[Rfam]
RNA sequence: AUUAUUACCCUAACAGAAACAUUGACUUUGGUUCUUAAUGCAGUAAGUGCUUUUUGUUGGGGUAGUUUUU
Numbered sequence: 001a002u003u004a005u006u007a008c009c010c011u012a013a014c015a016g017a018a019a020c021a022u023u024g025a026c027u028u029u030g031g032u033u034c035u036u037a038a039u040g041c042a043g044u045a046a047g048u049g050c051u052u053u054u055u056g057u058u059g060g061g062g063u064a065g066u067u068u069u070u
Base pairs, nucleotide, nucleotide: 004066005065006064007063008062009061010060011059013057014056015055016054017053018051020049021048022047023046025044026043027042
RNA: miR-430 microRNA precursor family
Organism: Collichthys lucidus